[Rfam]
RNA sequence: CAGGCACUAACGAACAAUCCCACCGGCGAGUGUACAUACUCGGUCUCCUGUGUGGACCUAACGGUGCCCAGA
Numbered sequence: 001c002a003g004g005c006a007c008u009a010a011c012g013a014a015c016a017a018u019c020c021c022a023c024c025g026g027c028g029a030g031u032g033u034a035c036a037u038a039c040u041c042g043g044u045c046u047c048c049u050g051u052g053u054g055g056a057c058c059u060a061a062c063g064g065u066g067c068c069c070a071g072a
Stems, first nucleotide, its partner, number of pairs: 003068003007064002020055004024050002028041005
This 72-nucleotide RNA from Trypanosoma theileri belongs to the Rfam family "Trypanosomatid snoRNA TB11Cs3H1".
The match comes from Rfam's covariance-model search (79 bits).
The family's consensus secondary structure was predicted with WAR.
Rfam classes the family as an H/ACA-box small nucleolar RNA.
Lineage of the source: Eukaryota > Discoba > Kinetoplastea > Trypanosomatidae > Trypanosoma.
Its family is annotated with RNA processing and nucleolus in the Gene Ontology.
A reference for the family is Liang et al. (2005), "A genome-wide analysis of C/D and H/ACA-like small nucleolar RNAs in Trypanosoma brucei reveals a trypanosome-specific pattern of rRNA modification", RNA.